Potassium channel RNA editing signal: a 114-nucleotide RNA sequence. The family has 85 seed sequences and 14,095 matches in Rfam 15.1. The base pairs follow the family's consensus structure, which is taken from published work. It is annotated as a cis-regulatory element. Rfam links the family to the GO term adenosine to inosine editing.
[Rfam]
RNA sequence: CUGGGAUAUGGAGACAUGGUGCCUAAGACAAUCGCAGGGAAGAUAUUUGGCUCCAUCUGCUCCCUCAGCGGUGUCCUGGUCAUUGCCCUGCCGGUCCCUGUGAUAGUCUCCAAC
Numbered sequence: 001c002u003g004g005g006a007u008a009u010g011g012a013g014a015c016a017u018g019g020u021g022c023c024u025a026a027g028a029c030a031a032u033c034g035c036a037g038g039g040a041a042g043a044u045a046u047u048u049g050g051c052u053c054c055a056u057c058u059g060c061u062c063c064c065u066c067a068g069c070g071g072u073g074u075c076c077u078g079g080u081c082a083u084u085g086c087c088c089u090g091c092c093g094g095u096c097c098c099u100g101u102g103a104u105a106g107u108c109u110c111c112a113a114c
Stems, first nucleotide, its partner, number of pairs: 002113001004111002008107002011104001014101003018097002021095002037077004049063002